[Rfam]
Rfam assigns this 73-nucleotide RNA from a Fimbriimonadaceae bacterium to the family "tRNA". The family's consensus secondary structure is taken from published work. The family is grouped with related families in Rfam's "tRNA clan". It is annotated as a transfer RNA. It scores 63 bits against the family's covariance model.
RNA sequence: GGCCCGGUCGUCUAGCGGUUAGGAUGCCGCCCUUUCACGGCGGAGAUCGCGGGUUCGAGUCCCGUCCGGGCUA
Dot-bracket structure: (((((((..((((........)))).(((((.......))))).....(((((.......)))))))))))).